[Rfam]
RNA sequence: AUAGAAUAAAGGUAAACUUGUCGAAAGGUAAGGACACAAAAUCACGGACCUAAGUCUUUAUAGAUAGGGUGGCCGGAUUGCCGGG
Dot-bracket structure: ...........((...((((((....))))))...))..((((.((((((....(((....)))...)))..)))))))......
This 85-nucleotide RNA from Pullulanibacillus camelliae belongs to the Rfam family "c-di-GMP-I riboswitch aptamer".